The record is a 210-nucleotide sequence from Cyprinus carpio, which matches "Small nucleolar RNA SNORD17" in Rfam. From the family's description: The snoRNA HBI-43 belongs to the C/D family of snoRNAs, guiding 2'O-ribose methylation at position U3797 of the 28S rRNA. Pseudouridylation in position U3797 is predicted to be guided by the H/ACA snoRNA ACA48. The family's consensus secondary structure was predicted with RNAalifold. The organism belongs to Cyprinus carpio, within Eukaryota.
RNA sequence: GUGGCAUGAUGAAGGUGUUUAUCCAUUCGCCGAGCGCUGCCGACUCUCUCCCUCAGCGGCCGUGCGGUCCGUUCUGGGCCGCGGGGUCACAGCGGUCUGGUUCUGCUCGGCUGGUCCAGUGUUCUGUUGGGUCGGCCGUGGCGGGGUCUGAUGUGCUGGUGCGAGGGGUCAGAGCGGUUCUGACAAAGACGAAUAGACGUGUCUGAUCAC
Numbered sequence: 001g002u003g004g005c006a007u008g009a010u011g012a013a014g015g016u017g018u019u020u021a022u023c024c025a026u027u028c029g030c031c032g033a034g035c036g037c038u039g040c041c042g043a044c045u046c047u048c049u050c051c052c053u054c055a056g057c058g059g060c061c062g063u064g065c066g067g068u069c070c071g072u073u074c075u076g077g078g079c080c081g082c083g084g085g086g087u088c089a090c091a092g093c094g095g096u097c098u099g100g101u102u103c104u105g106c107u108c109g110g111c112u113g114g115u116c117c118a119g120u121g122u123u124c125u126g127u128u129g130g131g132u133c134g135g136c137c138g139u140g141g142c143g144g145g146g147u148c149u150g151a152u153g154u155g156c157u158g159g160u161g162c163g164a165g166g167g168g169u170c171a172g173a174g175c176g177g178u179u180c181u182g183a184c185a186a187a188g189a190c191g192a193a194u195a196g197a198c199g200u201g202u203c204u205g206a207u208c209a210c
Stems, first nucleotide, its partner, number of pairs: 010209003017202002020199001023196001025194005030188001034184001039178004044174004050168002052165003058088004063083008091157004095152003104143002106140001109137013